[Rfam]
Nucleotides: 073
Base pairs, nucleotide, nucleotide: 006068007067008066009065010064013061014060015058016057017056018055019054020053021052022051023050
Number, partner (000 for none) and nucleotide at each position: 001000c002000u003000g004000g005000c006068a007067a008066c009065a010064a011000u012000c013061u014060c015058c016057u017056g018055a019054u020053g021052c022051u023050g024000c025000c026000u027000g028000a029000g030000u031000g032000u033000g034000u035000u036000g037000a038000g039000a040000a041000g042000g043000a044000c045000u046000a047000c048000u049000c050023c051022a052021g053020c054019a055018u056017c057016a058015g059000u060014g061013a062000u063000u064010u065009u066008g067007u068006u069000g070000c071000u072000g073000g

A member of the RNA family "mir-338 microRNA precursor family" from Clupea harengus, 73 nucleotides long.